[Rfam]
Background:
The record is a 160-nucleotide sequence from Paenibacillus nanensis, which matches "c-di-AMP riboswitch aptamer (ydaO/yuaA leader)" in Rfam. About the family: This family represents a conserved RNA structure found upstream of the ydaO and yuaA genes in Bacillus subtilis and related genes in other bacteria. The ydaO/yuaA element is thought to act as a genetic 'off' switch for the ydaO and yuaA genes in its native state. A search with the family's covariance model found it, with a score of 96 bits. NCBI's taxonomy places the organism under Bacteria, Bacillati, Bacilli, Caryophanales, Paenibacillus.
RNA sequence: ACUCCUUAAUCGCUUAAUUCUGUAAUCCAGAAGCGGGGGAACCAUCGGAAUGGGCUUUCCAUUCCUGGGGUGAAUCACUUGAUCCGUUUAGAUCAGGUGUAAGGUUACUUUCAAACCUGAAUCCGUCAGCUAACCUCGUAAGCGUCCCGAAAGAGGAACU
Numbered sequence: 001a002c003u004c005c006u007u008a009a010u011c012g013c014u015u016a017a018u019u020c021u022g023u024a025a026u027c028c029a030g031a032a033g034c035g036g037g038g039g040a041a042c043c044a045u046c047g048g049a050a051u052g053g054g055c056u057u058u059c060c061a062u063u064c065c066u067g068g069g070g071u072g073a074a075u076c077a078c079u080u081g082a083u084c085c086g087u088u089u090a091g092a093u094c095a096g097g098u099g100u101a102a103g104g105u106u107a108c109u110u111u112c113a114a115a116c117c118u119g120a121a122u123c124c125g126u127c128a129g130c131u132a133a134c135c136u137c138g139u140a141a142g143c144g145u146c147c148c149g150a151a152a153g154a155g156g157a158a159c160u
Stems, first nucleotide, its partner, number of pairs: 011144004018032003033139006043067002068124003076099009102118004